[Rfam]
RNA sequence: CGUAGGAAGCACAAAGUGUCGAAGACACAUUUAGAAUGGUGCUGACGAAAUGCCGCCGAGUGUAAACGGGGGGGCGAUACCAAAC
Numbered sequence: 001c002g003u004a005g006g007a008a009g010c011a012c013a014a015a016g017u018g019u020c021g022a023a024g025a026c027a028c029a030u031u032u033a034g035a036a037u038g039g040u041g042c043u044g045a046c047g048a049a050a051u052g053c054c055g056c057c058g059a060g061u062g063u064a065a066a067c068g069g070g071g072g073g074g075c076g077a078u079a080c081c082a083a084a085c
Stems, first nucleotide, its partner, number of pairs: 008043005016028004052075003056071002060067002
Rfam assigns this 85-nucleotide sequence to the family "GA-cis RNA". The family's consensus secondary structure is taken from published work. The family's RNA type in Rfam is small RNA. The sequence is in the family's curated seed alignment.